RNA: ATPC RNA motif
Nucleotides: 095
Stems, first nucleotide, its partner, number of pairs: 002016005035094004040063007064085007
Number, partner (000 for none) and nucleotide at each position: 001000c002016u003015c004014g005013c006012c007000g008000u009000u010000a011000a012006g013005g014004c015003g016002a017000u018000c019000u020000g021000c022000u023000a024000a025000a026000c027000a028000c029000u030000u031000c032000u033000g034000c035094g036093c037092g038091u039000a040063g041062g042061u043060c044059c045058g046057a047000c048000g049000c050000u051000c052000a053000u054000g055000a056000c057046u058045c059044g060043g061042g062041c063040c064085c065084g066083c067082u068081c069080u070079c071000u072000u073000g074000c075000a076000a077000c078000a079070g080069a081068g082067a083066g084065u085064g086000u087000c088000c089000c090000u091038g092037c093036g094035c095000a